[Rfam]
Nucleotides: 066
Stems, first nucleotide, its partner, number of pairs: 007062004013055004023035004037050005
Number, partner (000 for none) and nucleotide at each position: 001000a002000u003000a004000a005000c006000u007062a008061g009060g010059c011000a012000c013055c014054c015053g016052g017000g018000a019000c020000a021000a022000a023035u024034c025033u026032c027000c028000g029000u030000g031000c032026g033025a034024g035023a036000a037050a038049g039048c040047u041046a042000g043000c044000a045000a046041u047040a048039g049038c050037u051000a052016c053015u054014g055013g056000a057000c058000u059010g060009u061008c062007u063000g064000a065000c066000c
Notes:
The family of this 66-nucleotide RNA sequence is "DUF3800-II RNA". It is annotated as a small RNA.